[Rfam]
RNA: Proteo-phage-1 RNA
Nucleotides: 080
Base pairs, nucleotide, nucleotide: 001015002014003013004012007037008036009035010034011033018026019025020024039059040058041057042056046076047075048074049073050072
Number, partner (000 for none) and nucleotide at each position: 001015c002014c003013g004012u005000a006000g007037c008036c009035a010034g011033g012004a013003c014002g015001g016000g017000c018026c019025g020024c021000a022000u023000u024020g025019c026018g027000g028000a029000u030000a031000g032000a033011c034010c035009u036008g037007g038000a039059u040058c041057c042056g043000u044000a045000g046076g047075c048074c049073g050072g051000u052000c053000g054000a055000g056042c057041g058040g059039a060000u061000u062000u063000a064000c065000g066000u067000u068000a069000u070000c071000a072050c073049c074048g075047g076046c077000a078000u079000c080000c